[Rfam]
RNA sequence: AUAGGCGGGAGGGAAAGGGAGAGUUAAGGGAAAUUGCAUGAAAUUGGAAGGUGAGCCUAAGGGAUAUACACAAUUACAUAUAAGAGGAAAGGAGGAGUAGGAGAAAAAUUCGCCCCCCCCCCCGCCUACACCUUGAUCUUAUUUGAUCGGGUCGUGACCCCAGCCCCGCCGGGCCGCCCCGAAAUGAAAAGCUCUCCUCCUGCGAAGCCCCUUCCUCUGGGCGCUGUGCAGUGAGGCCCUUUGGGCGGCGGCAGCGCCGCGGUCCCUGAGGUCCCGGAGCUGGUCCUAUGGGCCCGGUGCUCAGAAGUGAUGAAUUGAUCAGAUAGACGAGGCCGGGCCUGUCCCGGGCCAGUGAUUAUCGAGGCGAUUCUGAUCUGA
Numbered sequence: 001a002u003a004g005g006c007g008g009g010a011g012g013g014a015a016a017g018g019g020a021g022a023g024u025u026a027a028g029g030g031a032a033a034u035u036g037c038a039u040g041a042a043a044u045u046g047g048a049a050g051g052u053g054a055g056c057c058u059a060a061g062g063g064a065u066a067u068a069c070a071c072a073a074u075u076a077c078a079u080a081u082a083a084g085a086g087g088a089a090a091g092g093a094g095g096a097g098u099a100g101g102a103g104a105a106a107a108a109u110u111c112g113c114c115c116c117c118c119c120c121c122c123c124g125c126c127u128a129c130a131c132c133u134u135g136a137u138c139u140u141a142u143u144u145g146a147u148c149g150g151g152u153c154g155u156g157a158c159c160c161c162a163g164c165c166c167c168g169c170c171g172g173g174c175c176g177c178c179c180c181g182a183a184a185u186g187a188a189a190a191g192c193u194c195u196c197c198u199c200c201u202g203c204g205a206a207g208c209c210c211c212u213u214c215c216u217c218u219g220g221g222c223g224c225u226g227u228g229c230a231g232u233g234a235g236g237c238c239c240u241u242u243g244g245g246c247g248g249c250g251g252c253a254g255c256g257c258c259g260c261g262g263u264c265c266c267u268g269a270g271g272u273c274c275c276g277g278a279g280c281u282g283g284u285c286c287u288a289u290g291g292g293c294c295c296g297g298u299g300c301u302c303a304g305a306a307g308u309g310a311u312g313a314a315u316u317g318a319u320c321a322g323a324u325a326g327a328c329g330a331g332g333c334c335g336g337g338c339c340u341g342u343c344c345c346g347g348g349c350c351a352g353u354g355a356u357u358a359u360c361g362a363g364g365c366g367a368u369u370c371u372g373a374u375c376u377g378a
Stems, first nucleotide, its partner, number of pairs: 050114005142190003147182004153176002156174001159173003163169002214271004219266003223263003228260002231257003236252003239248002279298005284292003302377004312370006331350004336345002
RNA: Small Cajal body-specific RNA 2
Organism: Spermophilus dauricus